About this RNA: The record is a 299-nucleotide sequence from Scyliorhinus torazame, which matches "Nuclear RNase P" in Rfam. By type it is a ribozyme. The match comes from Rfam's covariance-model search (154 bits). NCBI's taxonomy places the organism under Eukaryota, Craniata, Galeomorphii, Carcharhiniformes, Scyliorhinus. The literature on the family includes a 1998 paper in Annu Rev Biochem by Frank and Pace, "Ribonuclease P: unity and diversity in a tRNA processing ribozyme".
[Rfam]
RNA sequence: GUGGUAGGAAGCUCACAGCAGAGGUCACAUGCUGAGUGCAAAUCACUCCUUGCUAGUACCUUGGGGAAGGACUGCGUUAAGAGCCAAUCACUGCCCUUGCAGAGUGUCACCUGAUGCAGGUGAGGAAGUUACCCGGAAUAUGGUGCAGGCAGUAACAAUGAGCAGGAGAAGCAAUUCCAGGAUUGCGGAUGCAGUUGUUGUCUGGUAUGGAAAUGGCUUCUGGCUGGCUUGGUGAGCUCAAUGUGUGUGGUUGAGGUAAAGUAAGUCUCACAACCCAAUUCAGACUACUCUCCUGCCAU
Numbered sequence: 001g002u003g004g005u006a007g008g009a010a011g012c013u014c015a016c017a018g019c020a021g022a023g024g025u026c027a028c029a030u031g032c033u034g035a036g037u038g039c040a041a042a043u044c045a046c047u048c049c050u051u052g053c054u055a056g057u058a059c060c061u062u063g064g065g066g067a068a069g070g071a072c073u074g075c076g077u078u079a080a081g082a083g084c085c086a087a088u089c090a091c092u093g094c095c096c097u098u099g100c101a102g103a104g105u106g107u108c109a110c111c112u113g114a115u116g117c118a119g120g121u122g123a124g125g126a127a128g129u130u131a132c133c134c135g136g137a138a139u140a141u142g143g144u145g146c147a148g149g150c151a152g153u154a155a156c157a158a159u160g161a162g163c164a165g166g167a168g169a170a171g172c173a174a175u176u177c178c179a180g181g182a183u184u185g186c187g188g189a190u191g192c193a194g195u196u197g198u199u200g201u202c203u204g205g206u207a208u209g210g211a212a213a214u215g216g217c218u219u220c221u222g223g224c225u226g227g228c229u230u231g232g233u234g235a236g237c238u239c240a241a242u243g244u245g246u247g248u249g250g251u252u253g254a255g256g257u258a259a260a261g262u263a264a265g266u267c268u269c270a271c272a273a274c275c276c277a278a279u280u281c282a283g284a285c286u287a288c289u290c291u292c293c294u295g296c297c298a299u
Stems, first nucleotide, its partner, number of pairs: 001299004007293003012249001014247004021062004034048005072283003076279001082225004092106003096102001107123006124221007143206001250271001252270006